Shown here is a 52-nucleotide RNA from Shigella sonnei, a member of the family "L31-Gammaproteobacteria ribosomal protein leader". The literature on the family includes a 2020 paper in BMC Microbiol by Eckert and Weinberg, "Discovery of 20 novel ribosomal leader candidates in bacteria and archaea". The sequence is in the family's curated seed alignment. By type it is a cis-regulatory leader. The base pairs follow the family's consensus structure, which is taken from published work.
RNA sequence: CGCGUGGUGUCCAGCGUUAGGGCUGGAAGGGCGACGCGGCCUAUUUUAAGGU
Numbered sequence: 001c002g003c004g005u006g007g008u009g010u011c012c013a014g015c016g017u018u019a020g021g022g023c024u025g026g027a028a029g030g031g032c033g034a035c036g037c038g039g040c041c042u043a044u045u046u047u048a049a050g051g052u
Stems, first nucleotide, its partner, number of pairs: 001038005007032002010027006